[Rfam]
Nucleotides: 115
Base pairs, nucleotide, nucleotide: 002114003113004112005111006110007109009107010106011105012104015101016100017099018098019097020096021095022094023093025091027089028088029087030086031085032084033083034082035081036080037079039077040076041075042074043073044072049067050066051065052064
Number, partner (000 for none) and nucleotide at each position: 001000u002114u003113a004112u005111a006110a007109g008000c009107a010106a011105a012104a013000c014000g015101c016100u017099a018098c019097u020096u021095u022094u023093u024000u025091g026000g027089u028088u029087c030086a031085u032084u033083g034082a035081a036080u037079a038000c039077u040076u041075a042074a043073u044072g045000u046000a047000c048000u049067u050066g051065g052064u053000a054000u055000a056000u057000a058000u059000u060000a061000u062000a063000g064052a065051c066050c067049a068000c069000a070000u071000a072044c073043a074042u075041u076040a077039g078000a079037u080036a081035u082034u083033c084032a085031a086030u087029g088028a089027a090000c091025c092000u093023a094022a095021a096020a097019a098018g099017u100016a101015g102000a103000u104012u105011u106010u107009u108000g109007c110006u111005u112004a113003u114002a115000a
Shown here is a 115-nucleotide RNA from Medicago truncatula, a member of the family "MIR2593 microRNA precursor family". Lineage of the source: Eukaryota > Streptophyta > Streptophytina > fabids > Medicago. Rfam links the family to the GO terms miRNA-mediated post-transcriptional gene silencing and RISC complex.